[Rfam]
RNA sequence: AAAGUCCGAUAUAGGAAAGAAUGGCACAUCAUCCUAACCCCGAGUCAUGCGCUGGCCACCGUGAGGUGGUCGGUGAAGUGUUGACAGGGGAAACCUGCGGGCCAGCCAUAGAGCCGCGAAAUCAUAAAUCCGGGACGCCGACGCUGUUAUGCGAAGCGGAAGGCCACAGUGAACAUGACGACAAGUGCAAGCCAUGUUCGCGUCCCGCGCGGUCGCAGACCC
Numbered sequence: 001a002a003a004g005u006c007c008g009a010u011a012u013a014g015g016a017a018a019g020a021a022u023g024g025c026a027c028a029u030c031a032u033c034c035u036a037a038c039c040c041c042g043a044g045u046c047a048u049g050c051g052c053u054g055g056c057c058a059c060c061g062u063g064a065g066g067u068g069g070u071c072g073g074u075g076a077a078g079u080g081u082u083g084a085c086a087g088g089g090g091a092a093a094c095c096u097g098c099g100g101g102c103c104a105g106c107c108a109u110a111g112a113g114c115c116g117c118g119a120a121a122u123c124a125u126a127a128a129u130c131c132g133g134g135a136c137g138c139c140g141a142c143g144c145u146g147u148u149a150u151g152c153g154a155a156g157c158g159g160a161a162g163g164c165c166a167c168a169g170u171g172a173a174c175a176u177g178a179c180g181a182c183a184a185g186u187g188c189a190a191g192c193c194a195u196g197u198u199c200g201c202g203u204c205c206c207g208c209g210c211g212g213u214c215g216c217a218g219a220c221c222c
Base pairs, nucleotide, nucleotide: 012036013035014034015033016032019030020029022190024188025187038090039089040088041087044085045084046083047082048080049079050075051074052073053072054071055070056069057068058067059066060065111214113213114212115211116210117209118208131207132206133205134204135203136202137164138163139162142158143157144156145155169201170200171199172198173197174196175195176194177193179191